RNA sequence: AGGAAUCCGACCGGGUCGACCUUAGAACACAUGUGAUUGUGUCUCUAUUUUGAUUUGGUUCGUUUCAUGUGUUCUCAGGUCGCCCCUGUCGGGUUUCC
Numbered sequence: 001a002g003g004a005a006u007c008c009g010a011c012c013g014g015g016u017c018g019a020c021c022u023u024a025g026a027a028c029a030c031a032u033g034u035g036a037u038u039g040u041g042u043c044u045c046u047a048u049u050u051u052g053a054u055u056u057g058g059u060u061c062g063u064u065u066c067a068u069g070u071g072u073u074c075u076c077a078g079g080u081c082g083c084c085c086c087u088g089u090c091g092g093g094u095u096u097c098c
Base pairs, nucleotide, nucleotide: 007092008091011088013086014085017082018081019080024075025074026073027072028071029070030069031068032067

Rfam assigns this 98-nucleotide RNA from Gossypium australe to the family "MIR398 microRNA precursor family". The base pairs follow the family's consensus structure, which was predicted with WAR. A search with the family's covariance model found it, with a score of 69 bits. The organism belongs to Gossypium, within Eukaryota.